[Rfam]
RNA sequence: UGACGGAAGGGCACACCAGGGGUGGAGCCUGUGGCUUAAUUUGAAUCAACACGGGGAAACUUACCAGGACCAGAUGUUUUUUAUGACUGACAGGCUUCGGGUCUUUCAGGAUAUUGUUUUUGGUGGUGCAUGGCCGUUGGUGGUGCGUGGGUUGACCUGUCUAGCGUUGAUUCAGCUAACGAGCGAGAUUAUCGCCAAUUAUUUACUUUGCCGAAGUCCUUCGGUUAAAGUUCUAAUUGGGACUCCCUGCGAUUUUAGCAGGUGGAAGAGGGUAGCAAUAACAGGUCCGUGAUGCCCUUUAGAUGCUCUGGGCUGCACGCGUGCUACAAUGUUAGGAUCAAUAGGACUGCGAGCCUGAGAGGGUGCGCUACUCUUAUAAUCCCUAACGUAGUUGGGAUUGACGUUUGUAAUCAGCGUCAUGAACCAGGAAUCCCUUGUAAAUGUGUGUCAACAACGCACGUUGAAUACGUCCCUGCCCUUUGUACACACCGCCCGUCGCUCCUACCGAUUGGAUGACUCGGUGAAAUCACCGGAUGCUUACGAGCAGAAAGUGAUUAAAUCACGUUAUCUAGAGGAAGGAGAAGUCGUAACAAGG
Numbered sequence: 001u002g003a004c005g006g007a008a009g010g011g012c013a014c015a016c017c018a019g020g021g022g023u024g025g026a027g028c029c030u031g032u033g034g035c036u037u038a039a040u041u042u043g044a045a046u047c048a049a050c051a052c053g054g055g056g057a058a059a060c061u062u063a064c065c066a067g068g069a070c071c072a073g074a075u076g077u078u079u080u081u082u083a084u085g086a087c088u089g090a091c092a093g094g095c096u097u098c099g100g101g102u103c104u105u106u107c108a109g110g111a112u113a114u115u116g117u118u119u120u121u122g123g124u125g126g127u128g129c130a131u132g133g134c135c136g137u138u139g140g141u142g143g144u145g146c147g148u149g150g151g152u153u154g155a156c157c158u159g160u161c162u163a164g165c166g167u168u169g170a171u172u173c174a175g176c177u178a179a180c181g182a183g184c185g186a187g188a189u190u191a192u193c194g195c196c197a198a199u200u201a202u203u204u205a206c207u208u209u210g211c212c213g214a215a216g217u218c219c220u221u222c223g224g225u226u227a228a229a230g231u232u233c234u235a236a237u238u239g240g241g242a243c244u245c246c247c248u249g250c251g252a253u254u255u256u257a258g259c260a261g262g263u264g265g266a267a268g269a270g271g272g273u274a275g276c277a278a279u280a281a282c283a284g285g286u287c288c289g290u291g292a293u294g295c296c297c298u299u300u301a302g303a304u305g306c307u308c309u310g311g312g313c314u315g316c317a318c319g320c321g322u323g324c325u326a327c328a329a330u331g332u333u334a335g336g337a338u339c340a341a342u343a344g345g346a347c348u349g350c351g352a353g354c355c356u357g358a359g360a361g362g363g364u365g366c367g368c369u370a371c372u373c374u375u376a377u378a379a380u381c382c383c384u385a386a387c388g389u390a391g392u393u394g395g396g397a398u399u400g401a402c403g404u405u406u407g408u409a410a411u412c413a414g415c416g417u418c419a420u421g422a423a424c425c426a427g428g429a430a431u432c433c434c435u436u437g438u439a440a441a442u443g444u445g446u447g448u449c450a451a452c453a454a455c456g457c458a459c460g461u462u463g464a465a466u467a468c469g470u471c472c473c474u475g476c477c478c479u480u481u482g483u484a485c486a487c488a489c490c491g492c493c494c495g496u497c498g499c500u501c502c503u504a505c506c507g508a509u510u511g512g513a514u515g516a517c518u519c520g521g522u523g524a525a526a527u528c529a530c531c532g533g534a535u536g537c538u539u540a541c542g543a544g545c546a547g548a549a550a551g552u553g554a555u556u557a558a559a560u561c562a563c564g565u566u567a568u569c570u571a572g573a574g575g576a577a578g579g580a581g582a583a584g585u586c587g588u589a590a591c592a593a594g595g
Base pairs, nucleotide, nucleotide: 001486002485003483004482005481007480008479009478010477011476012475013474015470016469019434020433021432022431023430024327026325027324028323030321031320032319033318034316035315040055041054042053043052064311065310066309067308068307070305076117077116089107090106092104093103094102122298123297125296126295127294128293131292132290133286134285135284136282137281138280139279143184144183146181147180148179149158150157151156162175164173190274191273192272193271195240196239197238198237199236200235201234205231206230207229208228243265244264246262247261248260249259250258331387332386333385334384335383336382343375344374345373349368350367353364354363355362356361394424399419400418401417402416403415404414405413440462441461442460443459444458445457446456447455489594491591494587495586497584499581500580501579502578503577505575506574509571511570512569513568514567515566516565517564520561521560522559525556526555527554528553529552530551535546536545537544538543

A member of the RNA family "Eukaryotic small subunit ribosomal RNA" from Trichomonas vaginalis, 595 nucleotides of a longer RNA. Clan: SSU clan. On this family, see Yusupov et al., Science 2001: "Crystal structure of the ribosome at 5.5 A resolution". The source organism's lineage runs through Eukaryota, Trichomonadida, Trichomonadidae, Trichomonas and Trichomonas vaginalis. Pairs were carried over by alignment from the consensus structure, which is taken from published work.